This 107-nucleotide sequence from Rhododendron canescens belongs to the Rfam family "Small nucleolar RNA snoR100". On this family, see Marker et al., Curr Biol 2002: "Experimental RNomics: identification of 140 candidates for small non-messenger RNAs in the plant Arabidopsis thaliana". It is one of the family's seed sequences. The family has 9 seed sequences and 1,851 matches in Rfam 15.1. By type it is an H/ACA-box small nucleolar RNA. Its family is annotated with nucleolus and RNA processing in the Gene Ontology.
RNA sequence: CAAUGAAGGAAGCAUGGUAAUGUGCACAUAAAUUAAUUUGGGUCUCUAGGCCUGCCCCUCUGAUGCCAUUUGGCUUUGAUUUAGGGGCAUGGUUUUACAACAAAACG
Number, nucleotide and partner (000 for none) at each position: 001c000002a000003a000004u000005g000006a000007a000008g000009g000010a000011a000012g025013c024014a023015u022016g000017g000018u000019a000020a000021u000022g015023u014024g013025c012026a000027c000028a000029u000030a000031a000032a000033u000034u000035a000036a000037u000038u000039u000040g090041g000042g088043u087044c086045u000046c000047u000048a000049g000050g080051c000052c078053u000054g074055c073056c072057c000058c000059u000060c000061u000062g000063a000064u000065g000066c000067c000068a000069u000070u000071u000072g056073g055074c054075u000076u000077u000078g052079a000080u050081u000082u000083a000084g000085g000086g044087g043088c042089a000090u040091g000092g000093u000094u000095u000096u000097a000098c000099a000100a000101c000102a000103a000104a000105a000106c000107g000